Rfam assigns this 171-nucleotide sequence from Triticum aestivum to the family "MIR2118 microRNA precursor family".
For this family Rfam cites "Characterization and expression profiles of miRNAs in rice seeds" (Xue et al., Nucleic Acids Res, 2009).
Taxonomically the source falls in Triticum (Eukaryota, Embryophyta, Magnoliopsida, Triticeae).
Pairs were carried over by alignment from the consensus structure, which was predicted with RNAalifold.
Its family is annotated with miRNA-mediated post-transcriptional gene silencing and RISC complex in the Gene Ontology.

RNA sequence: GUGAGCUAGGAAGAGGAAGAAAUAGUCGAAGAGCGGUGAGAAUGGGAGCACGGAGGAAACCCUGAGCUAUCCAUCUACGCCUCUGGAAACAGAGGUGGAUAUCUGACUCGGUGUUUCCCCUUGCCUCCCAUUCCUAUUGUUCUUAGGUUCUCCUUCCCCUUCCUUUUACCU
Numbered sequence: 001g002u003g004a005g006c007u008a009g010g011a012a013g014a015g016g017a018a019g020a021a022a023u024a025g026u027c028g029a030a031g032a033g034c035g036g037u038g039a040g041a042a043u044g045g046g047a048g049c050a051c052g053g054a055g056g057a058a059a060c061c062c063u064g065a066g067c068u069a070u071c072c073a074u075c076u077a078c079g080c081c082u083c084u085g086g087a088a089a090c091a092g093a094g095g096u097g098g099a100u101a102u103c104u105g106a107c108u109c110g111g112u113g114u115u116u117c118c119c120c121u122u123g124c125c126u127c128c129c130a131u132u133c134c135u136a137u138u139g140u141u142c143u144u145a146g147g148u149u150c151u152c153c154u155u156c157c158c159c160u161u162c163c164u165u166u167u168a169c170c171u
Base pairs, nucleotide, nucleotide: 009162010161011160013158015156016155017154022151026147027146029144030143031142032141033140034139035138037136038135040133041132042131043130044129045128046127047126049123050122053119055118056117057116058115059114060113
Dot-bracket structure: ........(((.(.(((....(...((.(((((((.((.((((((((.((..(.((((((....................................................)))))))..))..)))))))).)).))))))).))...)..))).).))).........